[Rfam]
RNA sequence: GAAGGUAGGUCCUUCGAUAUCGGCAUACAGGUGCUGGUAUCAAACCGCCACGAGCUGCUGUGGUGAAUGAGUCAUGGUGGUGAACGUCCGUGGAAAAGCCGCCGGGAGAGGCGGCAGGU
Numbered sequence: 001g002a003a004g005g006u007a008g009g010u011c012c013u014u015c016g017a018u019a020u021c022g023g024c025a026u027a028c029a030g031g032u033g034c035u036g037g038u039a040u041c042a043a044a045c046c047g048c049c050a051c052g053a054g055c056u057g058c059u060g061u062g063g064u065g066a067a068u069g070a071g072u073c074a075u076g077g078u079g080g081u082g083a084a085c086g087u088c089c090g091u092g093g094a095a096a097a098g099c100c101g102c103c104g105g106g107a108g109a110g111g112c113g114g115c116a117g118g119u
Stems, first nucleotide, its partner, number of pairs: 001015005016041006023034004046118001048093005053087001054081002057078003061074004098115006